Background:
The record is a 165-nucleotide sequence, which matches "IS605-orfB-II RNA" in Rfam.

RNA sequence: CAUGAUAAAACAUAUAAUUACAUAUGUUUUGGAUUGUAUAGUGGGUAGUCGCAGUCACCUCACACCUGUUUGAUAUGAUUUUAAAUAAUCCGCUGUUGAAUAAAAGGAAAACAAAUUCUUUAGAAUUUGGAAAAGUUUAAAAACUUUAAGUUUUUAACUAACUGU
Numbered sequence: 001c002a003u004g005a006u007a008a009a010a011c012a013u014a015u016a017a018u019u020a021c022a023u024a025u026g027u028u029u030u031g032g033a034u035u036g037u038a039u040a041g042u043g044g045g046u047a048g049u050c051g052c053a054g055u056c057a058c059c060u061c062a063c064a065c066c067u068g069u070u071u072g073a074u075a076u077g078a079u080u081u082u083a084a085a086u087a088a089u090c091c092g093c094u095g096u097u098g099a100a101u102a103a104a105a106g107g108a109a110a111a112c113a114a115a116u117u118c119u120u121u122a123g124a125a126u127u128u129g130g131a132a133a134a135g136u137u138u139a140a141a142a143a144c145u146u147u148a149a150g151u152u153u154u155u156a157a158c159u160a161a162c163u164g165u
Base pairs, nucleotide, nucleotide: 006031007030008029009028010027011026012025013024014023015022043060044059045058046057051165052164053163054162065107066106069100070099071098072097073096074095075094078089079088080087112129113128114127115126116125117124118123134159135158136157137156139154140153141152142151